[Rfam]
RNA: Small nucleolar RNA snoR97
RNA sequence: CUUUUGAUUUGUGUAUAAGUUUAAAACUCAGAGAGCAUGGCUUGUCAUCAACUUUUCUCUUUGUUAGCAGGAGAUGGGAGUUAAAGAACAACAAGAAAU
Numbered sequence: 001c002u003u004u005u006g007a008u009u010u011g012u013g014u015a016u017a018a019g020u021u022u023a024a025a026a027c028u029c030a031g032a033g034a035g036c037a038u039g040g041c042u043u044g045u046c047a048u049c050a051a052c053u054u055u056u057c058u059c060u061u062u063g064u065u066a067g068c069a070g071g072a073g074a075u076g077g078g079a080g081u082u083a084a085a086g087a088a089c090a091a092c093a094a095g096a097a098a099u
Stems, first nucleotide, its partner, number of pairs: 038093002042091003050082006056074004